The family of this 128-nucleotide RNA from Papio anubis is "Small nucleolar RNA SNORA77".
The family's RNA type in Rfam is H/ACA-box small nucleolar RNA.
On this family, see Schattner et al., RNA 2006: "A computational screen for mammalian pseudouridylation guide H/ACA RNAs".
From the family's description: ACA63 (SNORA77) is a member of the H/ACA class of snoRNAs that guide the sites of modification of uridines to pseudouridines.
Gene Ontology terms of the family: RNA processing and nucleolus.
[Rfam]
RNA sequence: GUAGACUCACUAUGCAUCUGGCUGCAUCACCAGGUGGCUGCUCAUUCCCUCUUCCAGAGAAACAAACAUUCCAGCCUGCUGUGGCCACCUGACUUAUAAGGGCAAUGCAGCUGCCUGGAGAUAGACAG
Numbered sequence: 001g002u003a004g005a006c007u008c009a010c011u012a013u014g015c016a017u018c019u020g021g022c023u024g025c026a027u028c029a030c031c032a033g034g035u036g037g038c039u040g041c042u043c044a045u046u047c048c049c050u051c052u053u054c055c056a057g058a059g060a061a062a063c064a065a066a067c068a069u070u071c072c073a074g075c076c077u078g079c080u081g082u083g084g085c086c087a088c089c090u091g092a093c094u095u096a097u098a099a100g101g102g103c104a105a106u107g108c109a110g111c112u113g114c115c116u117g118g119a120g121a122u123a124g125a126c127a128g
Base pairs, nucleotide, nucleotide: 001054003052004051005050014041015040016039018037019036020035022033023032024031070119071118072117073116074115076113078111079110080109081108082107083106088102089101090100